[Rfam]
RNA sequence: CGCUGUCUUUGGCAAUGGUAGAACUCACACUGGUGAGCUAUCAGGAUCCGGUGGUUCUAGACUUGCCAACUUCUGCG
Numbered sequence: 001c002g003c004u005g006u007c008u009u010u011g012g013c014a015a016u017g018g019u020a021g022a023a024c025u026c027a028c029a030c031u032g033g034u035g036a037g038c039u040a041u042c043a044g045g046a047u048c049c050g051g052u053g054g055u056u057c058u059a060g061a062c063u064u065g066c067c068a069a070c071u072u073c074u075g076c077g
Base pairs, nucleotide, nucleotide: 002076003075005073009069010068011067012066013065014064015063019059020058021057022056023055024054028053029052030051031050032049033048
Dot-bracket structure: .((.(...(((((((...((((((...((((((..............))))))))))))...)))))))...).)).